[Rfam]
RNA sequence: UCCCUGCUUUUCCUCCCUGAGCAGGUGCCUUACCGUGAUGACAGCGUUAAGGCUUUGCGGCCCCAGUCCCUCGGACUGGGGCUCUUUCU
Numbered sequence: 001u002c003c004c005u006g007c008u009u010u011u012c013c014u015c016c017c018u019g020a021g022c023a024g025g026u027g028c029c030u031u032a033c034c035g036u037g038a039u040g041a042c043a044g045c046g047u048u049a050a051g052g053c054u055u056u057g058c059g060g061c062c063c064c065a066g067u068c069c070c071u072c073g074g075a076c077u078g079g080g081g082c083u084c085u086u087u088c089u
Stems, first nucleotide, its partner, number of pairs: 003025006027053006061081008
RNA: Burkholderia RNA 7 (anti-hemB)
Organism: Caldimonas brevitalea